This 81-nucleotide RNA sequence from Rubripirellula reticaptiva belongs to the Rfam family "Group II catalytic intron D1-D4-1".
The pairing is the family consensus, mapped onto this sequence.
Lineage of the source: Bacteria > Pseudomonadati > Planctomycetota > Pirellulaceae > Rubripirellula.
RNA sequence: CUGACGACUUCGCAAGAAGCCGUGAUCGCGCGUCAGAAGUCAGCAGAGGGCGUAGUAGACGGAUGCAGACCGGCGAGGGUC
Numbered sequence: 001c002u003g004a005c006g007a008c009u010u011c012g013c014a015a016g017a018a019g020c021c022g023u024g025a026u027c028g029c030g031c032g033u034c035a036g037a038a039g040u041c042a043g044c045a046g047a048g049g050g051c052g053u054a055g056u057a058g059a060c061g062g063a064u065g066c067a068g069a070c071c072g073g074c075g076a077g078g079g080u081c
Stems, first nucleotide, its partner, number of pairs: 004023003008019004040047002049081003058074001060072003
The match comes from Rfam's covariance-model search (48 bits).